About this RNA: The record is a 75-nucleotide RNA from Tychaedon coryphoeus, which matches "mir-551 microRNA precursor family" in Rfam. Pairs were carried over by alignment from the consensus structure, which was predicted with RNAalifold. The literature on the family includes a 2008 paper in Genome Res by Murchison et al., "Conservation of small RNA pathways in platypus". A search with the family's covariance model found it, with a score of 87 bits. The family has 29 seed sequences and 1,097 matches in Rfam 15.1.
RNA sequence: UGGCCCCAGAAAUCAAGGGUGGGUAAGACCUGGUGCACAAACUCUGAGGCGACCCAUACUUGGUUUCAGGGGCUG
Numbered sequence: 001u002g003g004c005c006c007c008a009g010a011a012a013u014c015a016a017g018g019g020u021g022g023g024u025a026a027g028a029c030c031u032g033g034u035g036c037a038c039a040a041a042c043u044c045u046g047a048g049g050c051g052a053c054c055c056a057u058a059c060u061u062g063g064u065u066u067c068a069g070g071g072g073c074u075g
Stems, first nucleotide, its partner, number of pairs: 002074006009067006016060002021055004029049003